[Rfam]
RNA sequence: CGACGGGGCCUCUGCAAUGGAGGCAGUGUGAACCCCGCCAGGCCCGGAAGGGAGCAACGGUAGCAUUGUCUUCCAUGUGCCGGAGAAUCCCUGUCGGGC
Numbered sequence: 001c002g003a004c005g006g007g008g009c010c011u012c013u014g015c016a017a018u019g020g021a022g023g024c025a026g027u028g029u030g031a032a033c034c035c036c037g038c039c040a041g042g043c044c045c046g047g048a049a050g051g052g053a054g055c056a057a058c059g060g061u062a063g064c065a066u067u068g069u070c071u072u073c074c075a076u077g078u079g080c081c082g083g084a085g086a087a088u089c090c091c092u093g094u095c096g097g098g099c
Stems, first nucleotide, its partner, number of pairs: 004093005010085005015077001017076006024068006035060003043052003
A member of the RNA family "Bacterial small signal recognition particle RNA" from Flexistipes sinusarabici, 99 nucleotides long. Rfam's curators write: The signal recognition particle (SRP) is a universally conserved ribonucleoprotein involved in the co-translational targeting of proteins to membranes. The organism belongs to Flexistipes sinusarabici, within Bacteria.